Rfam assigns this 132-nucleotide RNA sequence from Streptococcus pneumoniae to the family "Ribosomal protein L20 leader". About the family: This family is a putative r-protein leader autoregulatory structure found in B. subtilis and other low-GC Gram-positive bacteria. It is located in the 5' untranslated regions of mRNAs encoding initiation factor 3 followed by ribosomal proteins L35 and L20 (infC-rpmI-rplT). A Rho-independent transcription terminator structure that is probably involved in regulation is included at the 3' end. The literature on the family includes a 1994 paper in Prog Nucleic Acid Res Mol Biol by Zengel and Lindahl, "Diverse mechanisms for regulating ribosomal protein synthesis in Escherichia coli". Taxonomically the source falls in Streptococcus pneumoniae (Bacteria, Bacillota, Bacilli, Lactobacillales). Gene Ontology term of the family: regulation of gene expression. It is one of the family's seed sequences.
RNA sequence: UGAGAAAAGCAGAAGUGAGAGCUUCUCGCCUUGUGACAUUAAGUUGCCUGGCCCUACGGAUGAAAAGUUUCGAAGAAACGCUAUCAUAACGUGCGGGCUUGUAUAUUUACGAGUCCGCUAUUGUUUUUCUCU
Number, nucleotide and partner (000 for none) at each position: 001u000002g000003a000004g000005a000006a000007a000008a000009g000010c000011a026012g025013a024014a023015g022016u021017g000018a000019g000020a000021g016022c015023u014024u013025c012026u011027c000028g052029c051030c050031u000032u000033g047034u046035g045036a044037c043038a000039u000040u000041a000042a000043g037044u036045u035046g034047c033048c000049u000050g030051g029052c028053c000054c000055u000056a000057c000058g000059g000060a000061u000062g000063a000064a000065a000066a000067g000068u000069u000070u000071c000072g000073a000074a000075g000076a000077a000078a000079c000080g000081c000082u000083a000084u000085c000086a000087u000088a000089a000090c000091g000092u000093g118094c117095g116096g115097g114098c113099u112100u111101g110102u109103a108104u000105a000106u000107u000108u103109a102110c101111g100112a099113g098114u097115c096116c095117g094118c093119u000120a000121u000122u000123g000124u000125u000126u000127u000128u000129c000130u000131c000132u000